[Rfam]
Nucleotides: 508
Stems, first nucleotide, its partner, number of pairs: 004020005022498010033383009042341001048339003052336003057081003062078007088294003098218007107211002112207007120154004129144006159185007168177001192199002220266003227257003232254008269291004273284004296317005319330004347373001349372003355368005386409010414434007441487006454481004463470002
Number, partner (000 for none) and nucleotide at each position: 001000a002000u003000u004020c005019c006018g007017g008016u009000u010000g011000a012000u013000u014000c015000u016008g017007c018006c019005g020004g021000a022498g023497a024496c025495u026494a027493c028492u029491g030490c031489u032000a033383u034382u035381a036380g037379g038378a039377u040376c041375c042341g043000a044000u045000u046000a047000a048339g049338c050337c051000a052336u053335g054334c055000u056000a057081g058080c059079g060000g061000a062078g063077g064076g065075c066074a067073g068072u069000u070000u071000g072068g073067c074066u075065g076064c077063c078062c079059c080058g081057c082000g083000a084000a085000c086000a087000g088294c089293u090292c091000a092000g093000u094000a095000a096000c097000a098218c099217g100216u101215a102214g103213u104212u105000a106000a107211c108210c109000u110000a111000c112207c113206c114205u115204u116203a117202a118201g119000g120154c121153g122152g123151g124000g125000a126000u127000a128000a129144c130143c131142c132141c133140g134139g135000g136000a137000a138000a139134c140133u141132g142131g143130g144129g145000a146000u147000a148000a149000u150000a151123c152122c153121c154120g155000a156000u157000a158000g159185g160184c161183g162182g163181g164180a165179g166000u167000u168177c169000u170000g171000g172000a173000a174000a175000a176000u177168g178000u179165c180164u181163c182162u183161c184160g185159c186000c187000a188000a189000a190000a191000a192199g193198c194000u195000c196000u197000g198193g199192c200000g201118c202117u203116u204115a205114a206113g207112g208000a209000u210108g211107g212104g213103a214102c215101u216100g217099c218098g219000g220266c221265c222264c223000a224000u225000c226000a227257g228256g229255u230000a231000g232254a233253u234252g235251g236250u237249g238248g239247g240000g241000u242000a243000a244000a245000g246000g247239c248238c249237c250236a251235c252234c253233a254232u255229g256228c257227c258000u259000a260000u261000a262000a263000c264222g265221g266220g267000u268000a269291c270290g271289g272288g273284c274283c275282c276281u277000g278000a279000g280000a281276g282275g283274g284273g285000g286000a287000g288272c289271c290270c291269g292090g293089a294088g295000a296317u297316g298315g299314g300313g301000a302000c303000u304000g305000a306000g307000a308000c309000a310000a311000g312000g313300c314299c315298c316297c317296a318000g319330g320329c321328c322327c323000u324000a325000c326000g327322g328321g329320g330319c331000g332000c333000a334054g335053c336052a337050g338049g339048c340000g341042c342000g343000a344000a345000a346000c347373c348000u349372u350371c351370g352000c353000a354000a355368u356367g357366c358365g359364u360000g361000c362000a363000a364359g365358c366357g367356c368355g369000a370351c371350g372349a373347g374000g375041g376040g377039a378038u379037c380036c381035u382034a383033a384000g385000u386409g387408c388407c389406g390405g391404u392403g393402g394401u395400c396000u397000a398000a399000c400395g401394a402393c403392c404391g405390u406389c407388g408387g409386c410000u411000u412000u413000u414434c415433a416432g417431g418430a419429g420428u421000g422000u423000a424000a425000g426000a427000a428420g429419c430418u431417u432416c433415u434414g435000g436000a437000a438000c439000a440000a441487g442486g443485g444484c445483c446482g447000g448000g449000u450000a451000a452000g453000a454481c455480u456479g457478g458000u459000g460000c461000c462000a463470g464469c465000c466000g467000c468000c469464g470463c471000g472000g473000u474000a475000a476000u477000a478457c479456c480455a481454g482446c483445g484444g485443c486442u487441c488000g489031a490030g491029u492028g493027g494026u495025a496024g497023u498022c499000g500000a501000u502000u503000u504000u505000a506000u507000u508000g
Shown here is a 508-nucleotide part of an RNA from candidate division MSBL1 archaeon SCGC-AAA261D19, a member of the family "Archaeal small subunit ribosomal RNA".
For this family Rfam cites "Crystal structure of the ribosome at 5.5 A resolution" (Yusupov et al., Science, 2001).
Gene Ontology terms of the family: ribosome and structural constituent of ribosome.
Lineage of the source: Archaea > Methanobacteriati > Methanobacteriota > candidate division MSBL1.